Annotation:
Small nucleolar RNA SNORA74: a 201-nucleotide sequence from Lates calcarifer.

RNA sequence: CCCAGCUCUCAGUCAGCUGACCAGGCGAUGUGUGUCUGGCUCAGUGUUACAGUGCUGGUAGAGGAAGUCUCUGUUCUUGGUCUCAGCUCAGCAGGUUCUGUUUUAGAGUCUGCUGCUGCUGAGCUGCUGCAGAGCGCGGCCCGACGAGAGUGGCCUGUCCUGAUUCAACAGCAGGGCAGGCCUAGUACAAGGCCGCACAGG
Number, nucleotide and partner (000 for none) at each position: 001c000002c058003c057004a056005g055006c054007u000008c052009u051010c000011a000012g050013u049014c000015a000016g045017c044018u043019g042020a041021c000022c038023a037024g036025g035026c034027g000028a000029u000030g000031u000032g000033u000034g026035u025036c024037u023038g022039g000040c000041u020042c019043a018044g017045u016046g000047u000048u000049a013050c012051a009052g008053u000054g006055c005056u004057g003058g002059u000060a000061g000062a000063g000064g000065a000066a000067g000068u000069c134070u133071c132072u131073g130074u129075u000076c000077u000078u000079g125080g124081u123082c000083u121084c118085a117086g116087c115088u000089c000090a114091g113092c000093a111094g110095g000096u108097u107098c106099u105100g000101u000102u000103u000104u000105a099106g098107a097108g096109u000110c094111u093112g000113c091114u090115g087116c086117u085118g084119c000120u000121g083122a000123g081124c080125u079126g000127c000128u000129g074130c073131a072132g071133a070134g069135c000136g196137c195138g194139g193140c192141c191142c000143g000144a000145c000146g000147a000148g000149a000150g000151u000152g182153g181154c180155c000156u178157g177158u176159c175160c174161u173162g172163a000164u000165u000166c000167a000168a000169c000170a000171g000172c162173a161174g160175g159176g158177c157178a156179g000180g154181c153182c152183u000184a000185g000186u000187a000188c000189a000190a000191g141192g140193c139194c138195g137196c136197a000198c000199a000200g000201g000

Annotation:
U19 belongs to the H/ACA class of snoRNAs. snoRNAs bind a number of proteins (including dyskerin, Gar1p and Nop10p in the case of the H/ACA class) to form snoRNP complexes. This class are thought to guide the sites of modification of uridines to pseudouridines by forming direct base pairing interactions with substrate RNAs. Targets may include ribosomal and spliceosomal RNAs but the exact functions of many snoRNAs, including U19, are not confirmed. Co-precipitation of U19 snoRNA with RNase MRP RNA suggests that U19 may be involved in pre-rRNA processing. Its family is annotated with nucleolus and RNA processing in the Gene Ontology. The base pairs follow the family's consensus structure, which was predicted with PFOLD. The match comes from Rfam's covariance-model search (77 bits). Its Rfam clan is "SNORA74 clan". A reference for the family is Ganot et al. (1997), "The family of box ACA small nucleolar RNAs is defined by an evolutionarily conserved secondary structure and ubiquitous sequence elements essential for RNA accumulation", Genes Dev. The source organism's lineage runs through Eukaryota, Metazoa, Ctenosquamata, Centropomidae and Lates.